[Rfam]
RNA sequence: AUAGAGAGUGAUGAGUUGCACACUGGUGGAGCCCCGGUAUCGGGUGAUACAGGCACCACUCAAUACCACCCUGCUGACAAAGUAUUUAAAAUAGAAAUUCACA
Numbered sequence: 001a002u003a004g005a006g007a008g009u010g011a012u013g014a015g016u017u018g019c020a021c022a023c024u025g026g027u028g029g030a031g032c033c034c035c036g037g038u039a040u041c042g043g044g045u046g047a048u049a050c051a052g053g054c055a056c057c058a059c060u061c062a063a064u065a066c067c068a069c070c071c072u073g074c075u076g077a078c079a080a081a082g083u084a085u086u087u088a089a090a091a092u093a094g095a096a097a098u099u100c101a102c103a
Stems, first nucleotide, its partner, number of pairs: 004102001006100003022064001024062002026059004031054003037050005

Annotation: The family of this 103-nucleotide RNA sequence from Odobenus rosmarus is "Small nucleolar RNA SNORD67". The source organism's lineage runs through Eukaryota, Euteleostomi, Mammalia, Pinnipedia and Odobenus rosmarus. Rfam describes the family as follows. snoRNA HBII-166 belongs to the C/D family of snoRNAs. A search with the family's covariance model found it, with a score of 70 bits.